RNA sequence: AGAAGUUAAGAAACUUUUUCUUAACUUUUAACUAAAAAAGUUAAGAACCGGUUCUUAAAUAAUGACUUUAAAAAACGGAUUUUAGUUUUUUUAGUUAAAAAUUAAGAAACAGUUUCUUAACUUCC
Numbered sequence: 001a002g003a004a005g006u007u008a009a010g011a012a013a014c015u016u017u018u019u020c021u022u023a024a025c026u027u028u029u030a031a032c033u034a035a036a037a038a039a040g041u042u043a044a045g046a047a048c049c050g051g052u053u054c055u056u057a058a059a060u061a062a063u064g065a066c067u068u069u070a071a072a073a074a075a076c077g078g079a080u081u082u083u084a085g086u087u088u089u090u091u092u093a094g095u096u097a098a099a100a101a102u103u104a105a106g107a108a109a110c111a112g113u114u115u116c117u118u119a120a121c122u123u124c125c
Stems, first nucleotide, its partner, number of pairs: 002124014017109008026100014041085006
A member of the RNA family "MIR9563 microRNA precursor family" from Brassica carinata, 125 nucleotides long.
The source organism's lineage runs through Eukaryota, Embryophyta, eudicotyledons, rosids and Brassica.
Rfam links the family to the GO terms miRNA-mediated post-transcriptional gene silencing and RISC complex.